[Rfam]
RNA sequence: GGACUUUGACGAAUUUAUGUGAAAGGUGACAUAAUGGUGAGAAUCCACCUUGCUGACCAUUCUGAUACAUCACCACCCAUAUUCCGAGUCU
Numbered sequence: 001g002g003a004c005u006u007u008g009a010c011g012a013a014u015u016u017a018u019g020u021g022a023a024a025g026g027u028g029a030c031a032u033a034a035u036g037g038u039g040a041g042a043a044u045c046c047a048c049c050u051u052g053c054u055g056a057c058c059a060u061u062c063u064g065a066u067a068c069a070u071c072a073c074c075a076c077c078c079a080u081a082u083u084c085c086g087a088g089u090c091u
Stems, first nucleotide, its partner, number of pairs: 001091004039051002041046001
This 91-nucleotide RNA from Nyssa sinensis belongs to the Rfam family "Small nucleolar RNA Z43". The match comes from Rfam's covariance-model search (74 bits). The organism belongs to Nyssa, within Eukaryota. For this family Rfam cites "The high diversity of snoRNAs in plants: identification and comparative study of 120 snoRNA genes from Oryza sativa" (Chen et al., Nucleic Acids Res, 2003). The family's consensus secondary structure was predicted with PFOLD.